[Rfam]
RNA sequence: AGACGGUCCUCUAAACCAGCAGUGAAGCAUGUUGUUUAAAUAGAUGAUCCACCAAAAAUCUUACCAACUUGUUUGAAUUUACUUUUAUAUAUAUUUAUAAAUUGUGACUUAUCUCAUUUCUUUUUUUUUAAAGUUUUGAUUUAUUUAAACAGGCGUUACAUGGCUGUCUUCAAUUCUUAAUAUCAGAAGUUUGGUUAAGUCUUGCUAAAGAAUGCAACCCUCUAUUUUGUAAUUUUAAUGUACAAACGUAUAAAAAUAAAUAAAAAUAGAAUUUUCGGUAUACAAUUUUUUUUUACUUUUAUUUUUUUCUUGAGGACCAAGACAAGUCAUCAUGACCUUUAUAUAUUGGGCUAUAGACGUGCCACAAUAGUUUAAACAAUAAGUAACAAAUUUAAUAAAAAGAGUUAAUCUAUAACUUAAACUACGUACGGAUAAGACUCUGAAACUCGAGUAUUUGAAGUAGGAAUUGCUAGUAAUCGUGGAUCACAAUGCUACGGUGAAUUAUUUUCUAGAUGGUGUACUAA
Numbered sequence: 001a002g003a004c005g006g007u008c009c010u011c012u013a014a015a016c017c018a019g020c021a022g023u024g025a026a027g028c029a030u031g032u033u034g035u036u037u038a039a040a041u042a043g044a045u046g047a048u049c050c051a052c053c054a055a056a057a058a059u060c061u062u063a064c065c066a067a068c069u070u071g072u073u074u075g076a077a078u079u080u081a082c083u084u085u086u087a088u089a090u091a092u093a094u095u096u097a098u099a100a101a102u103u104g105u106g107a108c109u110u111a112u113c114u115c116a117u118u119u120c121u122u123u124u125u126u127u128u129u130a131a132a133g134u135u136u137u138g139a140u141u142u143a144u145u146u147a148a149a150c151a152g153g154c155g156u157u158a159c160a161u162g163g164c165u166g167u168c169u170u171c172a173a174u175u176c177u178u179a180a181u182a183u184c185a186g187a188a189g190u191u192u193g194g195u196u197a198a199g200u201c202u203u204g205c206u207a208a209a210g211a212a213u214g215c216a217a218c219c220c221u222c223u224a225u226u227u228u229g230u231a232a233u234u235u236u237a238a239u240g241u242a243c244a245a246a247c248g249u250a251u252a253a254a255a256a257u258a259a260a261u262a263a264a265a266a267u268a269g270a271a272u273u274u275u276c277g278g279u280a281u282a283c284a285a286u287u288u289u290u291u292u293u294u295a296c297u298u299u300u301a302u303u304u305u306u307u308u309c310u311u312g313a314g315g316a317c318c319a320a321g322a323c324a325a326g327u328c329a330u331c332a333u334g335a336c337c338u339u340u341a342u343a344u345a346u347u348g349g350g351c352u353a354u355a356g357a358c359g360u361g362c363c364a365c366a367a368u369a370g371u372u373u374a375a376a377c378a379a380u381a382a383g384u385a386a387c388a389a390a391u392u393u394a395a396u397a398a399a400a401a402g403a404g405u406u407a408a409u410c411u412a413u414a415a416c417u418u419a420a421a422c423u424a425c426g427u428a429c430g431g432a433u434a435a436g437a438c439u440c441u442g443a444a445a446c447u448c449g450a451g452u453a454u455u456u457g458a459a460g461u462a463g464g465a466a467u468u469g470c471u472a473g474u475a476a477u478c479g480u481g482g483a484u485c486a487c488a489a490u491g492c493u494a495c496g497g498u499g500a501a502u503u504a505u506u507u508u509c510u511a512g513a514u515g516g517u518g519u520a521c522u523a524a
Base pairs, nucleotide, nucleotide: 001522002521003519004518005517007516008515010513011512012511013510015506019470020469021468022467023466024365027362028361029360030359031358032357033356034354035353041054043052064349065348066347067346070345071344072343079149080148086139152338153337155336156335157334158333161332162331163327164326165325166323167322168321169320173213174212175211176210177209178208181186191204193202194201219315220314221313222312224257225256226255227254228253230252231251235246236245239244260306264304265303266302267301268300269299270298271297369423370422371421372420373419374418375417382411383410386405387404391400392399393398429460434455435454437452438451439450440449476498477497478496479495480494481493482492